RNA sequence: CUCUCCGAAAUAGCUUUAGGGCUAGCCUCAAGAAAAAGAGUACUGGAGGUAGAGCACUGAUUGGACUAGGGGCCCUCAUCGGGUUACCGAAUUCAGUCAAACUCCGAAUGCCAGCUACUUAGACUUGGGAGUCAGACUAUGGGUGAUAAGGUUCAUAGUCGAAAGGGAAACAGCCCAGACCACCAGCUAAGGUCCCAAAGUAUACGUUAAGUGGAAAAGGAUGUGGAGUUGCUUAGACAACCAGGAUGUUGGCUUAGAAGCAGCCACCAUUUAAAGAGUGCGUAAUAGCUCACUGGUCGAGUGACUCUGCGCCGAAAAUGUACCGGGGCUAAACGUAUCACCGAAGCUGUGGAUUGUUCUUCGAACAAUGGUAGGAGAGCGUUCUAAGUGCUGUGAAGUCAGACCGUGAGGACUGGUGGAGCGCUUAGAAGUGAGAAU
Numbered sequence: 001c002u003c004u005c006c007g008a009a010a011u012a013g014c015u016u017u018a019g020g021g022c023u024a025g026c027c028u029c030a031a032g033a034a035a036a037a038g039a040g041u042a043c044u045g046g047a048g049g050u051a052g053a054g055c056a057c058u059g060a061u062u063g064g065a066c067u068a069g070g071g072g073c074c075c076u077c078a079u080c081g082g083g084u085u086a087c088c089g090a091a092u093u094c095a096g097u098c099a100a101a102c103u104c105c106g107a108a109u110g111c112c113a114g115c116u117a118c119u120u121a122g123a124c125u126u127g128g129g130a131g132u133c134a135g136a137c138u139a140u141g142g143g144u145g146a147u148a149a150g151g152u153u154c155a156u157a158g159u160c161g162a163a164a165g166g167g168a169a170a171c172a173g174c175c176c177a178g179a180c181c182a183c184c185a186g187c188u189a190a191g192g193u194c195c196c197a198a199a200g201u202a203u204a205c206g207u208u209a210a211g212u213g214g215a216a217a218a219g220g221a222u223g224u225g226g227a228g229u230u231g232c233u234u235a236g237a238c239a240a241c242c243a244g245g246a247u248g249u250u251g252g253c254u255u256a257g258a259a260g261c262a263g264c265c266a267c268c269a270u271u272u273a274a275a276g277a278g279u280g281c282g283u284a285a286u287a288g289c290u291c292a293c294u295g296g297u298c299g300a301g302u303g304a305c306u307c308u309g310c311g312c313c314g315a316a317a318a319u320g321u322a323c324c325g326g327g328g329c330u331a332a333a334c335g336u337a338u339c340a341c342c343g344a345a346g347c348u349g350u351g352g353a354u355u356g357u358u359c360u361u362c363g364a365a366c367a368a369u370g371g372u373a374g375g376a377g378a379g380c381g382u383u384c385u386a387a388g389u390g391c392u393g394u395g396a397a398g399u400c401a402g403a404c405c406g407u408g409a410g411g412a413c414u415g416g417u418g419g420a421g422c423g424c425u426u427a428g429a430a431g432u433g434a435g436a437a438u
Stems, first nucleotide, its partner, number of pairs: 001379006011024005026131001027129006038120005043114004052105001053103002058099003062095004069088002071085005135160010165176003180352004185348003191342003200339001202338006219313002223310010240297005246270003251265003271275001276291001280289002353369007380433001382430010398417005404411002
Bacterial large subunit ribosomal RNA: a 438-nucleotide part of an RNA from Oceanobacillus halophilus. The base pairs follow the family's consensus structure, which is taken from published work.